[Rfam]
RNA sequence: AGGCCACCACCGACGUGACACAACAUCCUGCCGCGAUGUUGUGCCCAUCAGACCUGCAGUGUCCGUCGGCGGCCU
Numbered sequence: 001a002g003g004c005c006a007c008c009a010c011c012g013a014c015g016u017g018a019c020a021c022a023a024c025a026u027c028c029u030g031c032c033g034c035g036a037u038g039u040u041g042u043g044c045c046c047a048u049c050a051g052a053c054c055u056g057c058a059g060u061g062u063c064c065g066u067c068g069g070c071g072g073c074c075u
Base pairs, nucleotide, nucleotide: 001075002074003073004072005071011068012067013066014065015064022040023039024038025037026036027035051063052062053061